[Rfam]
The family of this 148-nucleotide RNA sequence from Sodalis-like symbiont of Philaenus spumarius is "Group II catalytic intron D1-D4-7". Gene Ontology term of the family: Group II intron splicing. The family has 244 seed sequences and 1,296 matches in Rfam 15.1. Rfam describes the family as follows. Group II introns are found in rRNA, tRNA and mRNA of organelles in fungi, plants and protists, and also in mRNA in bacteria.
RNA sequence: CCAGGUGGUCCGUCGCCUGUAGCCUACUGAAGCAUGCGAAACUGGUAACGGUUUGGUAUGGAGCCUUCAGAACAACGUAGCCAGGUUUUGAACCGUGUGUAAUCCGCGAGGAAGAAGCAUGUCUGCAAGUGUCAAUGCAGACAGGGUG
Numbered sequence: 001c002c003a004g005g006u007g008g009u010c011c012g013u014c015g016c017c018u019g020u021a022g023c024c025u026a027c028u029g030a031a032g033c034a035u036g037c038g039a040a041a042c043u044g045g046u047a048a049c050g051g052u053u054u055g056g057u058a059u060g061g062a063g064c065c066u067u068c069a070g071a072a073c074a075a076c077g078u079a080g081c082c083a084g085g086u087u088u089u090g091a092a093c094c095g096u097g098u099g100u101a102a103u104c105c106g107c108g109a110g111g112a113a114g115a116a117g118c119a120u121g122u123c124u125g126c127a128a129g130u131g132u133c134a135a136u137g138c139a140g141a142c143a144g145g146g147u148g
Stems, first nucleotide, its partner, number of pairs: 002019006028069005033060005039054006084094004095120004104111002122141006

Source information: Pairs were carried over by alignment from the consensus structure. It scores 105 bits against the family's covariance model.